[Rfam]
RNA: SAM riboswitch aptamer (S box leader)
RNA sequence: AACUCAUCCAGAGGGGUACAGGGACACGGCCCGACGACACCCCAGCAACCAGUCGCACGAUGCGACCAGGUGCUCAAUCCGUCCCGGGCGACAGUCGAUCCGGGGAAGAUGACCA
Numbered sequence: 001a002a003c004u005c006a007u008c009c010a011g012a013g014g015g016g017u018a019c020a021g022g023g024a025c026a027c028g029g030c031c032c033g034a035c036g037a038c039a040c041c042c043c044a045g046c047a048a049c050c051a052g053u054c055g056c057a058c059g060a061u062g063c064g065a066c067c068a069g070g071u072g073c074u075c076a077a078u079c080c081g082u083c084c085c086g087g088g089c090g091a092c093a094g095u096c097g098a099u100c101c102g103g104g105g106a107a108g109a110u111g112a113c114c115a
Stems, first nucleotide, its partner, number of pairs: 004112005013043005021032003026082004044074004049070002052066004078107001083104006